[Rfam]
RNA sequence: GCCCCGCAUCAAGAGUGGGCCGGCGCCCACGCCAACCUGCCUUCCCGGGCAAGGUGGCGGUCCUUCGAAAGAAGGACGAUGCGGCCGGUCAGGCAACCAAACGGGACCGU
Numbered sequence: 001g002c003c004c005c006g007c008a009u010c011a012a013g014a015g016u017g018g019g020c021c022g023g024c025g026c027c028c029a030c031g032c033c034a035a036c037c038u039g040c041c042u043u044c045c046c047g048g049g050c051a052a053g054g055u056g057g058c059g060g061u062c063c064u065u066c067g068a069a070a071g072a073a074g075g076a077c078g079a080u081g082c083g084g085c086c087g088g089u090c091a092g093g094c095a096a097c098c099a100a101a102c103g104g105g106a107c108c109g110u
Base pairs, nucleotide, nucleotide: 006082007081008080009079010078015030016029017028018027019026020025031058032057033056036054037053038052039050040049041048043106044105045104046103047102084094085093086092
A member of the RNA family "SAM-I/IV (S-adenosyl methionine) riboswitch aptamer" from Roseiterribacter gracilis, 110 nucleotides long. The source organism's lineage runs through Bacteria, Pseudomonadati, Alphaproteobacteria, Roseiterribacteraceae and Roseiterribacter. Pairs were carried over by alignment from the consensus structure, which is taken from published work. A reference for the family is Trausch et al. (2014), "Structural basis for diversity in the SAM clan of riboswitches", PNAS.